Background: Shown here is a 97-nucleotide RNA sequence from Tetracentron sinense, a member of the family "Plastid-rps12 3UTR RNA". About the family: Plastid rpl20 is a non-coding RNA (ncRNA) recognised in plastids. It was found in the three prime untranslated region (3UTR) of rps12 gene, its 3UTR location sugest a role in transcript maduration. Taxonomically the source falls in Tetracentron (Eukaryota, Embryophyta, Tracheophyta, Magnoliopsida). Rfam 15.1 lists 1,710 matches to the family in 1,426 species.
RNA sequence: GGUUUUUAUUGGUGCAACUCUAAUCACCUUAAUUUGAGAUGAGAAGCAAUUCCCCAUUGGUAGCAAAUGAUUAUCUAUUAAAUGGGAAAAAUAUUAU
Numbered sequence: 001g002g003u004u005u006u007u008a009u010u011g012g013u014g015c016a017a018c019u020c021u022a023a024u025c026a027c028c029u030u031a032a033u034u035u036g037a038g039a040u041g042a043g044a045a046g047c048a049a050u051u052c053c054c055c056a057u058u059g060g061u062a063g064c065a066a067a068u069g070a071u072u073a074u075c076u077a078u079u080a081a082a083u084g085g086g087a088a089a090a091a092u093a094u095u096a097u
Base pairs, nucleotide, nucleotide: 009023010022011021012020053086054085055084056078057077059075060074061073062072063071